[Rfam]
RNA sequence: CCUCUGGAGAGAUCCAAAAGGACACCGAAGGAGUAACACUCUCAGGUAAAAGGACAGAGG
Numbered sequence: 001c002c003u004c005u006g007g008a009g010a011g012a013u014c015c016a017a018a019a020g021g022a023c024a025c026c027g028a029a030g031g032a033g034u035a036a037c038a039c040u041c042u043c044a045g046g047u048a049a050a051a052g053g054a055c056a057g058a059g060g
Stems, first nucleotide, its partner, number of pairs: 001060006013022003024047003027043002031041003
RNA: Glycine riboswitch aptamer